Record summary:
A member of the RNA family "M-box riboswitch aptamer (ykoK leader)" from Nocardiopsis metallicus, 174 nucleotides long. The match comes from Rfam's covariance-model search (120 bits). The source organism's lineage runs through Bacteria, Bacillati, Actinomycetota, Actinomycetes and Nocardiopsis. On this family, see Barrick et al., Proc Natl Acad Sci U S A 2004: "New RNA motifs suggest an expanded scope for riboswitches in bacterial genetic control". Rfam links the family to the GO terms regulation of gene expression and response to magnesium ion. About the family: M-box riboswitch, also know as ykoK leader is described as a metaloregulatory RNA that sense divalent metals and function as a genetic control element of genes related to divalent metal transport in bacteria. It was first reported upstream of the B.subtilis ykoK gene and genes with related functions in other bacteria.
RNA sequence: CAGGUGUCCCGUUAGGUGAGGCUCCUGCGUGCGUAUGCGUCCGCUGCCCAAAAAGGUCGAGAGACCCCAAUGGGUCAACUGGUCCUGCCGAAUCAAGGCUUGACCUAACGCGGACCGGGACCACCCCGGUGGCCCCUAGGCACGCAGUGCUGAAGCUCGACAUUGGGAAAGUAC
Numbered sequence: 001c002a003g004g005u006g007u008c009c010c011g012u013u014a015g016g017u018g019a020g021g022c023u024c025c026u027g028c029g030u031g032c033g034u035a036u037g038c039g040u041c042c043g044c045u046g047c048c049c050a051a052a053a054a055g056g057u058c059g060a061g062a063g064a065c066c067c068c069a070a071u072g073g074g075u076c077a078a079c080u081g082g083u084c085c086u087g088c089c090g091a092a093u094c095a096a097g098g099c100u101u102g103a104c105c106u107a108a109c110g111c112g113g114a115c116c117g118g119g120a121c122c123a124c125c126c127c128g129g130u131g132g133c134c135c136c137u138a139g140g141c142a143c144g145c146a147g148u149g150c151u152g153a154a155g156c157u158c159g160a161c162a163u164u165g166g167g168a169a170a171g172u173a174c
Base pairs, nucleotide, nucleotide: 005170007168008167009166010165011161012160013096015157016156017155020151021150022149025147026146027145028144029143030142031141032140039115041113042112043111044110046075047074048073049072050071055066056065057064058063081105082104083103084102087099088098089097117135118134119133